[Rfam]
The record is a 129-nucleotide RNA sequence from Pectobacterium atrosepticum, which matches "RtT RNA" in Rfam. From the family's description: This family represents a bacterial cis-regulatory element known as RtT RNA. The exact function of RtT is unknown although it is thought that it may be involved in changing the cellular response in relation to amino acid starvation. It scores 68 bits against the family's covariance model. By type it is a cis-regulatory element.

RNA sequence: AUUGAUUUUGAAUCGUGAAGGAUGAGAACCGAAAGGUUCGACAAAAUCUGCAGUAUCGAUUUUGAACAACGCGAAAGCGUUGGCCCGAAGGGCGAGUCCGUAGGAAGAGUAAUCCUGCACGACCCACCA
Numbered sequence: 001a002u003u004g005a006u007u008u009u010g011a012a013u014c015g016u017g018a019a020g021g022a023u024g025a026g027a028a029c030c031g032a033a034a035g036g037u038u039c040g041a042c043a044a045a046a047u048c049u050g051c052a053g054u055a056u057c058g059a060u061u062u063u064g065a066a067c068a069a070c071g072c073g074a075a076a077g078c079g080u081u082g083g084c085c086c087g088a089a090g091g092g093c094g095a096g097u098c099c100g101u102a103g104g105a106a107g108a109g110u111a112a113u114c115c116u117g118c119a120c121g122a123c124c125c126a127c128c129a
Base pairs, nucleotide, nucleotide: 015120016119017118019116020115021114023112030094031093037089038088039087040086067082068081069080070079071078072077
Dot-bracket structure: ..............(((.(((.(......((.....((((..........................((((((....))))))...))))...)).................).))).))).........